[Rfam]
RNA sequence: UGUUAACAUGCGCUCUGACUUAUUGCACUACUGUAUUAUACAGCUAGCAGUGCAAUAGUAUUGUCAAAGCAUUUGAAAGCAGA
Dot-bracket structure: .(((..((.(.(((.((((..((((((((...(.......).......))))))))......)))).))).).))..)))...
Numbered sequence: 001u002g003u004u005a006a007c008a009u010g011c012g013c014u015c016u017g018a019c020u021u022a023u024u025g026c027a028c029u030a031c032u033g034u035a036u037u038a039u040a041c042a043g044c045u046a047g048c049a050g051u052g053c054a055a056u057a058g059u060a061u062u063g064u065c066a067a068a069g070c071a072u073u074u075g076a077a078a079g080c081a082g083a
Stems, first nucleotide, its partner, number of pairs: 002080003007075002010072001012070003016066004022056008033041001
The record is an 83-nucleotide RNA sequence from Hymenochirus boettgeri, which matches "mir-301 microRNA precursor family" in Rfam.
The literature on the family includes a 2003 paper in Dev Cell by Houbaviy et al., "Embryonic stem cell-specific MicroRNAs".
Taxonomically the source falls in Hymenochirus (Eukaryota, Bilateria, Amphibia, Pipidae).
It scores 86 bits against the family's covariance model.